[Rfam]
The family of this 126-nucleotide RNA sequence from Effusibacillus dendaii is "Bacillaceae-1 RNA". It scores 38 bits against the family's covariance model. The base pairs follow the family's consensus structure, which is taken from published work. It is annotated as a small RNA.
RNA sequence: UAUAGAGGAAGGCCGACUAAAAGCGCGACAUCCGUGUCGGUCGACGAAAACGCAACGUCCAUGUUGCAUCGUCGACACUAGACCGUCCAUGGUCGUCGCAACGUCGGCAUCAGCGCAUCCAUGCGU
Numbered sequence: 001u002a003u004a005g006a007g008g009a010a011g012g013c014c015g016a017c018u019a020a021a022a023g024c025g026c027g028a029c030a031u032c033c034g035u036g037u038c039g040g041u042c043g044a045c046g047a048a049a050a051c052g053c054a055a056c057g058u059c060c061a062u063g064u065u066g067c068a069u070c071g072u073c074g075a076c077a078c079u080a081g082a083c084c085g086u087c088c089a090u091g092g093u094c095g096u097c098g099c100a101a102c103g104u105c106g107g108c109a110u111c112a113g114c115g116c117a118u119c120c121a122u123g124c125g126u
Stems, first nucleotide, its partner, number of pairs: 012108006025099005113126004